[Rfam]
RNA sequence: GGCCGGGGUGCGGUGGGCCGCGACAUCAAAGGCUUUGGAGACCGAAGGGGUGACACCUUUCCAAACCCCUCCAGCCCCCUCACCCGGAUGGGUGACAUCGGCCAACUCGGGUGGAUUUGCGGGCAGUUGGCUGGCAUAUGCUCGCCGCGGCGGCCCCGGGUGCGGACACCGGCGCGGGGCGGCGACAAAGCCCCUACACGCAUCGGCCCCCGGCCGGGACUGGCAUCCCGAUCGAGGGCCUGACCAACAAGGAAGCGACCCUUCCCC
Numbered sequence: 001g002g003c004c005g006g007g008g009u010g011c012g013g014u015g016g017g018c019c020g021c022g023a024c025a026u027c028a029a030a031g032g033c034u035u036u037g038g039a040g041a042c043c044g045a046a047g048g049g050g051u052g053a054c055a056c057c058u059u060u061c062c063a064a065a066c067c068c069c070u071c072c073a074g075c076c077c078c079c080u081c082a083c084c085c086g087g088a089u090g091g092g093u094g095a096c097a098u099c100g101g102c103c104a105a106c107u108c109g110g111g112u113g114g115a116u117u118u119g120c121g122g123g124c125a126g127u128u129g130g131c132u133g134g135c136a137u138a139u140g141c142u143c144g145c146c147g148c149g150g151c152g153g154c155c156c157c158g159g160g161u162g163c164g165g166a167c168a169c170c171g172g173c174g175c176g177g178g179g180c181g182g183c184g185a186c187a188a189a190g191c192c193c194c195u196a197c198a199c200g201c202a203u204c205g206g207c208c209c210c211c212g213g214c215c216g217g218g219a220c221u222g223g224c225a226u227c228c229c230g231a232u233c234g235a236g237g238g239c240c241u242g243a244c245c246a247a248c249a250a251g252g253a254a255g256c257g258a259c260c261c262u263u264c265c266c267c
Base pairs, nucleotide, nucleotide: 007248009246010245016076017075018074081094082093083092084091085090110173112171113170114169205240206239207238208237209236211234212233216229217228218227219226251265252264253263254262255261